[Rfam]
RNA sequence: GACUUCCAUUUAUCAGUGGAUAAGACUUUGGUCUUAGUAUAUAUGAGUUCGUGGAAGUUUUGAAAGUAAAGGAGCAAUACACAAUCUCUUGAUAUAACAAGAAAUUAAUAAUUGCUCCUUU
Numbered sequence: 001g002a003c004u005u006c007c008a009u010u011u012a013u014c015a016g017u018g019g020a021u022a023a024g025a026c027u028u029u030g031g032u033c034u035u036a037g038u039a040u041a042u043a044u045g046a047g048u049u050c051g052u053g054g055a056a057g058u059u060u061u062g063a064a065a066g067u068a069a070a071g072g073a074g075c076a077a078u079a080c081a082c083a084a085u086c087u088c089u090u091g092a093u094a095u096a097a098c099a100a101g102a103a104a105u106u107a108a109u110a111a112u113u114g115c116u117c118c119u120u121u
Base pairs, nucleotide, nucleotide: 005020006019007018008017009016068121069120070119071118072117073116074115075114076113077112078111083106084105087102088101089100090099
Plastid-psbA-1 3UTR RNA: a 121-nucleotide RNA sequence from Rubus crataegifolius. The family's consensus secondary structure was predicted with LocARNA. Its Rfam clan is "Plastid-psbA 3UTR RNA clan". It is one of the family's seed sequences. It is annotated as a cis-regulatory element. Rfam describes the family as follows. Plastid psbA-1 is a non-coding RNA (ncRNA) present in plastids. Taxonomically the source falls in Rubus (Eukaryota, Streptophytina, Pentapetalae, Rosaceae).